[Rfam]
Nucleotides: 075
Stems, first nucleotide, its partner, number of pairs: 002074011013030004018025001036063004040058004
Number, partner (000 for none) and nucleotide at each position: 001000u002074u003073g004072c005071a006070a007069g008068u009067g010066g011065u012064g013030u014029u015028c016027a017000u018025g019000u020000g021000g022000u023000a024000u025018c026000c027016u028015g029014a030013a031000u032000c033000c034000a035000a036063g037062g038061g039060a040058c041057a042056g043055g044000g045000a046000u047000g048000c049000g050000c051000a052000a053000u054000a055043c056042c057041u058040g059000a060039u061038c062037c063036c064012c065011a066010c067009c068008a069007u070006u071005u072004g073003u074002a075000u